[Rfam]
RNA: Small nucleolar RNA SNORD113/SNORD114 family
RNA sequence: UGGACCGAUGAUGCUGGUCGUGACGGGAAGAGUCCUGAACGAUGAAAACAUGUCUGAAACUCUGAGGUCCAG
Numbered sequence: 001u002g003g004a005c006c007g008a009u010g011a012u013g014c015u016g017g018u019c020g021u022g023a024c025g026g027g028a029a030g031a032g033u034c035c036u037g038a039a040c041g042a043u044g045a046a047a048a049c050a051u052g053u054c055u056g057a058a059a060c061u062c063u064g065a066g067g068u069c070c071a072g
Stems, first nucleotide, its partner, number of pairs: 002070005
Dot-bracket structure: .(((((...........................................................)))))..